[Rfam]
traJ-II RNA: a 100-nucleotide sequence from Azohydromonas caseinilytica.
The family's consensus secondary structure is taken from published work.
Rfam 15.1 lists 174 matches to the family in 172 species.
RNA sequence: GGGCAAGAUAGGUGAAGUAGGCCCACCAGCGGCGCUGGCGGACCUACUUCACGGGCCCUUAUUCGCCCCUGCGGGGCUCAACGGGAUCGCUAAAGAAGCG
Numbered sequence: 001g002g003g004c005a006a007g008a009u010a011g012g013u014g015a016a017g018u019a020g021g022c023c024c025a026c027c028a029g030c031g032g033c034g035c036u037g038g039c040g041g042a043c044c045u046a047c048u049u050c051a052c053g054g055g056c057c058c059u060u061a062u063u064c065g066c067c068c069c070u071g072c073g074g075g076g077c078u079c080a081a082c083g084g085g086a087u088c089g090c091u092a093a094a095g096a097a098g099c100g
Base pairs, nucleotide, nucleotide: 002091003090004089007088008087009086012052013051014050015049016048017047019045020044021043024040026038027037028036029035056085057084058083065077066076067075068074069073
Dot-bracket structure: .(((..(((..((((((.(((..(.((((.....)))).)..))).))))))...(((......(((((...))))).....))))))))).........